[Rfam]
RNA sequence: CAAGUCGUGAGGCUUGGGCGAGAAGAAGGGAUAGCGAAAUCGUAGCCUGACGAACAGAAACCUAAUACCAAGGCACAUAUGGCGGAUAAGUGGGCUGACAGUCACGAAGUCCAAAAGGCAAUCGUAACCUAUAUGUGUAGAUUAGGCAGGUAGACGAGGAAAGAGGGACGA
Numbered sequence: 001c002a003a004g005u006c007g008u009g010a011g012g013c014u015u016g017g018g019c020g021a022g023a024a025g026a027a028g029g030g031a032u033a034g035c036g037a038a039a040u041c042g043u044a045g046c047c048u049g050a051c052g053a054a055c056a057g058a059a060a061c062c063u064a065a066u067a068c069c070a071a072g073g074c075a076c077a078u079a080u081g082g083c084g085g086a087u088a089a090g091u092g093g094g095c096u097g098a099c100a101g102u103c104a105c106g107a108a109g110u111c112c113a114a115a116a117g118g119c120a121a122u123c124g125u126a127a128c129c130u131a132u133a134u135g136u137g138u139a140g141a142u143u144a145g146g147c148a149g150g151u152a153g154a155c156g157a158g159g160a161a162a163g164a165g166g167g168a169c170g171a
Stems, first nucleotide, its partner, number of pairs: 001016006030169001032167001035163001040157004045151005061146006073138003077134006084112004090105004